mir-1 microRNA precursor family: a 75-nucleotide RNA from Manduca sexta. This family represents the microRNA (miRNA) mir-1 family. miRNAs are transcribed as ~70nt precursors (modelled here) and subsequently processed by the Dicer enzyme to give a ~22nt product. In this case the mature sequence comes from the 3' arm of the precursor. The extents of the hairpin precursors are not generally known and are estimated based on hairpin prediction. The products are thought to have regulatory roles through complementarity to mRNA. The involvement of Dicer in miRNA processing suggests a relationship with the phenomenon of RNA interference. miRNAs are numbered based on the sequence of the mature RNA. This family also contains the mir-206 from human, which appears to be related to mir-1. Lineage of the source: Eukaryota > Protostomia > Panarthropoda > Hexapoda > Manduca. The sequence is in the family's curated seed alignment.
[Rfam]
RNA sequence: GCGCGAGUUCCGUGCUUCCUUACUUCCCAUAGUGCUUAUAAUCAUAUGGAAUGUAAAGAAGUAUGGAGCUGCGCG
Numbered sequence: 001g002c003g004c005g006a007g008u009u010c011c012g013u014g015c016u017u018c019c020u021u022a023c024u025u026c027c028c029a030u031a032g033u034g035c036u037u038a039u040a041a042u043c044a045u046a047u048g049g050a051a052u053g054u055a056a057a058g059a060a061g062u063a064u065g066g067a068g069c070u071g072c073g074c075g
Stems, first nucleotide, its partner, number of pairs: 007069012020056004025051001027049005